[Rfam]
RNA sequence: GCGUUGGCUAGCUCAGGGGUUACUUCCAAUCAUUGCUGAUUCCACGUUUCCUGCAGUUUGUAGGAUCGAACCCCGGGCGCUGUCCAGCGUUUUC
Numbered sequence: 001g002c003g004u005u006g007g008c009u010a011g012c013u014c015a016g017g018g019g020u021u022a023c024u025u026c027c028a029a030u031c032a033u034u035g036c037u038g039a040u041u042c043c044a045c046g047u048u049u050c051c052u053g054c055a056g057u058u059u060g061u062a063g064g065a066u067c068g069a070a071c072c073c074c075g076g077g078c079g080c081u082g083u084c085c086a087g088c089g090u091u092u093u094c
Stems, first nucleotide, its partner, number of pairs: 002089006011078004016074004024070003028066001